Background:
The record is a 167-nucleotide RNA sequence, which matches "Group II catalytic intron D1-D4-3" in Rfam. The base pairs follow the family's consensus structure. Group II introns are found in rRNA, tRNA and mRNA of organelles in fungi, plants and protists, and also in mRNA in bacteria. It is one of the family's seed sequences.
RNA sequence: GGUCCCGCGAGGGGCGGCCUGGAGGAAGCCUGAGCGCAAAGGUGCGAGCCGACGGACAGAAAUCGCAUAGAAGGCCUGGUCCCCGGGUGAGUCAGCACAAGAUGACGAAACCCUACAGGUGCAGGGGACAGGGUAAAUGCGGCGGUUGUGCACCGAAAGUUCAUGUC
Numbered sequence: 001g002g003u004c005c006c007g008c009g010a011g012g013g014g015c016g017g018c019c020u021g022g023a024g025g026a027a028g029c030c031u032g033a034g035c036g037c038a039a040a041g042g043u044g045c046g047a048g049c050c051g052a053c054g055g056a057c058a059g060a061a062a063u064c065g066c067a068u069a070g071a072a073g074g075c076c077u078g079g080u081c082c083c084c085g086g087g088u089g090a091g092u093c094a095g096c097a098c099a100a101g102a103u104g105a106c107g108a109a110a111c112c113c114u115a116c117a118g119g120u121g122c123a124g125g126g127g128a129c130a131g132g133g134u135a136a137a138u139g140c141g142g143c144g145g146u147u148g149u150g151c152a153c154c155g156a157a158a159g160u161u162c163a164u165g166u167c
Stems, first nucleotide, its partner, number of pairs: 002015005028167001030165001036160002041154006047147005063142006074134003079129006085113004091106004